[Rfam]
RNA: COG3860 RNA
RNA sequence: AGGUCCGCAGUUCACCUAGGCGCCGCCGGUCAUUCUGACUUUGCUAAACCUGCAC
Numbered sequence: 001a002g003g004u005c006c007g008c009a010g011u012u013c014a015c016c017u018a019g020g021c022g023c024c025g026c027c028g029g030u031c032a033u034u035c036u037g038a039c040u041u042u043g044c045u046a047a048a049c050c051u052g053c054a055c
Stems, first nucleotide, its partner, number of pairs: 001017004028040004